[Rfam]
Nucleotides: 129
Base pairs, nucleotide, nucleotide: 007123009121010120011119012118013117020041021040022039043108044107045106046104047103050102052100056095057094058093059092
Number, partner (000 for none) and nucleotide at each position: 001000u002000a003000g004000c005000g006000a007123u008000a009121c010120u011119c012118u013117g014000g015000a016000a017000a018000g019000u020041g021040u022039c023000g024000g025000g026000c027000c028000c029000g030000a031000a032000a033000g034000g035000g036000u037000c038000g039022g040021g041020c042000c043108g044107c045106c046104g047103a048000c049000g050102g051000u052100g053000u054000a055000a056095c057094c058093u059092u060000g061000a062000c063000g064000a065000u066000u067000g068000g069000u070000c071000c072000u073000u074000u075000u076000a077000c078000g079000g080000g081000c082000c083000g084000c085000u086000u087000c088000g089000a090000a091000g092059a093058g094057g095056g096000a097000a098000a099000a100052c101000u102050c103047u104046c105000a106045g107044g108043u109000u110000u111000c112000c113000g114000u115000g116000a117013c118012a119011g120010a121009g122000g123007g124000g125000g126000c127000a128000c129000c